[Rfam]
A member of the RNA family "Small nucleolar RNA ACA64" from Bucco capensis, 116 nucleotides long. The literature on the family includes a 2006 paper in RNA by Schattner et al., "A computational screen for mammalian pseudouridylation guide H/ACA RNAs". The source organism's lineage runs through Eukaryota, Bilateria, Vertebrata, Sauria and Bucco.
RNA sequence: ACAGUCUGAAAAUCACUUGGGGUCUUCUGUGGCCCCUGGUGCAAUAACAGCAGAGGGAGCAUUAAACUCAUUGCCCACGGUAAAGUGUGGGGAGUGAGACCCAUGUUCCUAUAAUC
Numbered sequence: 001a002c003a004g005u006c007u008g009a010a011a012a013u014c015a016c017u018u019g020g021g022g023u024c025u026u027c028u029g030u031g032g033c034c035c036c037u038g039g040u041g042c043a044a045u046a047a048c049a050g051c052a053g054a055g056g057g058a059g060c061a062u063u064a065a066a067c068u069c070a071u072u073g074c075c076c077a078c079g080g081u082a083a084a085g086u087g088u089g090g091g092g093a094g095u096g097a098g099a100c101c102c103a104u105g106u107u108c109c110u111a112u113a114a115u116c
Stems, first nucleotide, its partner, number of pairs: 006050003010045001014041003021034004056109001058107005068097005076089003